[Rfam]
Background
PhotoRC-II RNA: an 81-nucleotide sequence. By type it is a cis-regulatory element. The sequence is in the family's curated seed alignment.

RNA sequence: CUCCCGUUAACCGAGACCUAUGGGAGGGUAAAAUACGUCUCUCAUAUCCACCAGUGAAGGGAUUGGUGGAAAUAAAGUAUC
Number, nucleotide and partner (000 for none) at each position: 001c026002u025003c024004c023005c022006g021007u000008u000009a000010a000011c000012c000013g041014a040015g039016a038017c037018c000019u000020a000021u006022g005023g004024g003025a002026g001027g000028g000029u000030a000031a000032a000033a000034u000035a000036c000037g017038u016039c015040u014041c013042u000043c000044a000045u000046a000047u000048c069049c068050a067051c066052c065053a064054g063055u000056g000057a000058a000059g000060g000061g000062a000063u054064u053065g052066g051067u050068g049069g048070a000071a000072a000073u000074a000075a000076a000077g000078u000079a000080u000081c000